Shown here is an 84-nucleotide RNA from Drosophila willistoni, a member of the family "mir-3 microRNA precursor family". Clan: mir-3 clan. The family has 28 seed sequences and 52 matches in Rfam 15.1. Taxonomically the source falls in Sophophora (Eukaryota, Pterygota, Diptera, Cyclorrhapha). Gene Ontology terms of the family: RISC complex and miRNA-mediated post-transcriptional gene silencing. The literature on the family includes a 2003 paper in Dev Cell by Aravin et al., "The small RNA profile during Drosophila melanogaster development".
RNA sequence: AUUAUAUGAUAAACUUUGUUCAGUUUUGCAAUCAAAAAAUCAAGAAAAUUCCUUAGCAUCACUGGGUGAAGUUUGUCUUAUAAU
Numbered sequence: 001a002u003u004a005u006a007u008g009a010u011a012a013a014c015u016u017u018g019u020u021c022a023g024u025u026u027u028g029c030a031a032u033c034a035a036a037a038a039a040u041c042a043a044g045a046a047a048a049u050u051c052c053u054u055a056g057c058a059u060c061a062c063u064g065g066g067u068g069a070a071g072u073u074u075g076u077c078u079u080a081u082a083a084u
Base pairs, nucleotide, nucleotide: 005080006079008077009076010075011074012073013072014071017068018067019066021064022063023062024061